[Rfam]
RNA sequence: UAUAAAAAGCUUUGCUCACUCAAGGGAAGUCUUGCUCAUCCCCUUCUGAAAGGGGGUGAUAAAAAUGACAGCAUAUGAAACAAUCUCUUUAAUGAUUGCUUUUGGCAUGCUGAUUGCCAUGUUGUCAGAGAACAAAGAAAAAUAGACCGCCCCUUGAGCCUGGAAAGUGAUAGGGAGUGGUCUAUUUUAGGUCAAUCUGAGCAAGCCCCUUCGAAGGGCCGGCUUUUUGUACAAGCCGAAGUGUUGGAGCACUUCGG
Number, nucleotide and partner (000 for none) at each position: 001u231002a230003u229004a228005a227006a000007a225008a224009g223010c000011u221012u204013u203014g202015c201016u200017c199018a000019c158020u157021c156022a155023a154024g153025g152026g151027a000028a000029g147030u146031c145032u144033u000034g000035c000036u059037c058038a057039u000040c055041c054042c053043c052044u051045u000046c000047u000048g000049a000050a000051a044052g043053g042054g041055g040056g000057u038058g037059a036060u000061a000062a000063a000064a000065a000066u000067g126068a125069c124070a123071g122072c121073a120074u000075a000076u000077g000078a000079a000080a000081c094082a093083a000084u000085c000086u000087c000088u000089u000090u000091a000092a000093u082094g081095a000096u000097u000098g000099c000100u000101u000102u000103u000104g118105g117106c116107a115108u000109g000110c000111u000112g000113a000114u000115u107116g106117c105118c104119a000120u073121g072122u071123u070124g069125u068126c067127a000128g000129a000130g000131a000132a000133c000134a000135a000136a000137g000138a000139a000140a000141a000142a000143u000144a032145g031146a030147c029148c000149g000150c000151c026152c025153c024154u023155u022156g021157a020158g019159c000160c000161u000162g000163g000164a000165a000166a000167g000168u189169g188170a187171u000172a000173g000174g000175g000176a000177g000178u000179g000180g000181u000182c000183u000184a000185u000186u000187u170188u169189a168190g000191g000192u000193c000194a000195a000196u000197c000198u000199g017200a016201g015202c014203a013204a012205g220206c000207c218208c217209c000210u000211u000212c000213g000214a000215a000216g000217g208218g207219c000220c205221g011222g000223c009224u008225u007226u000227u005228u004229g003230u002231a001232c000233a000234a000235g000236c257237c256238g255239a254240a253241g252242u251243g250244u249245u000246g000247g000248a000249g244250c243251a242252c241253u240254u239255c238256g237257g236

Record summary: This 257-nucleotide RNA sequence from Bacillus licheniformis belongs to the Rfam family "BsrG". Gene Ontology terms of the family: autolysis and toxin activity. Lineage of the source: Bacteria > Bacillati > Bacillota > Bacillaceae > Bacillus licheniformis. Pairs were carried over by alignment from the consensus structure, which was predicted with WAR. By type it is a small RNA. It is one of the family's seed sequences.